[Rfam]
RNA sequence: GGGUGUCAAGGCCGUGGUGGCCUGACAGGUUCAGCGCCGGUCGGGCCGCCGCG
Dot-bracket structure: ....((((.(((.......)))))))........(((.(((......))))))
RNA: nhaA-I RNA